[Rfam]
RNA sequence: AUCGUUCAUCUUUCUUAAACGUCUUGAGAGUUAGGCUUCAAAAAGAGGUUUAGGGGAGACGGAAGUAGGGAGUUAUCCCGAAGGAACGCGCC
Numbered sequence: 001a002u003c004g005u006u007c008a009u010c011u012u013u014c015u016u017a018a019a020c021g022u023c024u025u026g027a028g029a030g031u032u033a034g035g036c037u038u039c040a041a042a043a044a045g046a047g048g049u050u051u052a053g054g055g056g057a058g059a060c061g062g063a064a065g066u067a068g069g070g071a072g073u074u075a076u077c078c079c080g081a082a083g084g085a086a087c088g089c090g091c092c
Stems, first nucleotide, its partner, number of pairs: 003088005009059012062089001068079003